RNA sequence: UAAAGCACCUUUACAUAUAGCUUAGUUCCCCGAUAUAAGGCAUAAUGCCCUACAACGUAGCGGUGCCUCAUGAUUAGAAAGUUAGAUCAUGUCUAGAAUUCCUAAUCAUGAGCCACUUUAAUCGCUAUCCCAUAUUUAUUUAGGGAAUGGGACUCUUCACCGAGGUUGUAAAAUGAGACAAACAAUUUUAGCUGUAU
Numbered sequence: 001u002a003a004a005g006c007a008c009c010u011u012u013a014c015a016u017a018u019a020g021c022u023u024a025g026u027u028c029c030c031c032g033a034u035a036u037a038a039g040g041c042a043u044a045a046u047g048c049c050c051u052a053c054a055a056c057g058u059a060g061c062g063g064u065g066c067c068u069c070a071u072g073a074u075u076a077g078a079a080a081g082u083u084a085g086a087u088c089a090u091g092u093c094u095a096g097a098a099u100u101c102c103u104a105a106u107c108a109u110g111a112g113c114c115a116c117u118u119u120a121a122u123c124g125c126u127a128u129c130c131c132a133u134a135u136u137u138a139u140u141u142a143g144g145g146a147a148u149g150g151g152a153c154u155c156u157u158c159a160c161c162g163a164g165g166u167u168g169u170a171a172a173a174u175g176a177g178a179c180a181a182a183c184a185a186u187u188u189u190a191g192c193u194g195u196a197u
Stems, first nucleotide, its partner, number of pairs: 015197008025183003031177001039049004051170006058127005063116003067112001069110003073106005079100001080094002083091002128152006135146003153164003
The family of this 197-nucleotide RNA sequence from Acinetobacter sp. ANC 4558 is "Acinetobacter sRNA 11". The organism belongs to Acinetobacter, within Bacteria. The match comes from Rfam's covariance-model search (175 bits). Pairs were carried over by alignment from the consensus structure, which was predicted with RNAfold. Rfam classes the family as a small RNA.